[Rfam]
A member of the RNA family "Group I catalytic intron" from Glaucomycena venus, 304 nucleotides long.
It scores 80 bits against the family's covariance model.
Rfam links the family to the GO term Group I intron splicing.
A reference for the family is Cech (1990), "Self-splicing of group I introns", Annu Rev Biochem.

RNA sequence: AUCGAACCAUUGACUACUUGGUGGUUGAGAGGCAGUUGAAAGACUGGCCUAGUAAGAGUUGAGGAUUGCGACACUGUUCAAAUUGCGGGGAUGUCCUUAGAGCCUUUGCUACCGCCGCUAUGCUGAAAAGUGUAGUGCGCACCAGGGUAAUGACCUCGGGUAUGGUAAUAACGCAAAGGAUUGGAUAAUCCGCAGCCAAGUCCUAAGGGUAGUAAACGACCUACGGAUGCAGUUCACAGACUAGAUGGCGGUGGGUGUUGCUUUAAUGCUUAAGAUAUAGUUGAUCCUGUCGUGCUCAAGACAA
Numbered sequence: 001a002u003c004g005a006a007c008c009a010u011u012g013a014c015u016a017c018u019u020g021g022u023g024g025u026u027g028a029g030a031g032g033c034a035g036u037u038g039a040a041a042g043a044c045u046g047g048c049c050u051a052g053u054a055a056g057a058g059u060u061g062a063g064g065a066u067u068g069c070g071a072c073a074c075u076g077u078u079c080a081a082a083u084u085g086c087g088g089g090g091a092u093g094u095c096c097u098u099a100g101a102g103c104c105u106u107u108g109c110u111a112c113c114g115c116c117g118c119u120a121u122g123c124u125g126a127a128a129a130g131u132g133u134a135g136u137g138c139g140c141a142c143c144a145g146g147g148u149a150a151u152g153a154c155c156u157c158g159g160g161u162a163u164g165g166u167a168a169u170a171a172c173g174c175a176a177a178g179g180a181u182u183g184g185a186u187a188a189u190c191c192g193c194a195g196c197c198a199a200g201u202c203c204u205a206a207g208g209g210u211a212g213u214a215a216a217c218g219a220c221c222u223a224c225g226g227a228u229g230c231a232g233u234u235c236a237c238a239g240a241c242u243a244g245a246u247g248g249c250g251g252u253g254g255g256u257g258u259u260g261c262u263u264u265a266a267u268g269c270u271u272a273a274g275a276u277a278u279a280g281u282u283g284a285u286c287c288u289g290u291c292g293u294g295c296u297c298a299a300g301a302c303a304a
Stems, first nucleotide, its partner, number of pairs: 001010002023049005072253005079247002084194006094185003195233002200228004208221003212217001237283001239282005255269006289302003293298001